[Rfam]
RNA sequence: UGCCUGAUGCCACAUAGCUGGGAGCUAUAUGCAGUGACCAGUGAUGCUACGAUCAGGCAAAAAUUGAGCCAGAUUUCUGGCCUUUCUCGUUUUGAUAGGAAUCUGUGGAAUGGUUCUCGAUCCAUCCAAAGAGCCGGUUUGCGAGAUUACAUUU
Numbered sequence: 001u002g003c004c005u006g007a008u009g010c011c012a013c014a015u016a017g018c019u020g021g022g023a024g025c026u027a028u029a030u031g032c033a034g035u036g037a038c039c040a041g042u043g044a045u046g047c048u049a050c051g052a053u054c055a056g057g058c059a060a061a062a063a064u065u066g067a068g069c070c071a072g073a074u075u076u077c078u079g080g081c082c083u084u085u086c087u088c089g090u091u092u093u094g095a096u097a098g099g100a101a102u103c104u105g106u107g108g109a110a111u112g113g114u115u116c117u118c119g120a121u122c123c124a125u126c127c128a129a130a131g132a133g134c135c136g137g138u139u140u141g142c143g144a145g146a147u148u149a150c151a152u153u154u
Base pairs, nucleotide, nucleotide: 002058003057004056005055006054007053008052009050013046014045015044017042018041020039021038024032025031085146086145087144088143089142098135099134103131104130107127108126109125111124
Rfam assigns this 154-nucleotide RNA from Apostasia shenzhenica to the family "Small nucleolar RNA snoR2/U65". Rfam 15.1 lists 908 matches to the family in 230 species. Pairs were carried over by alignment from the consensus structure, which was predicted with WAR. The match comes from Rfam's covariance-model search (102 bits).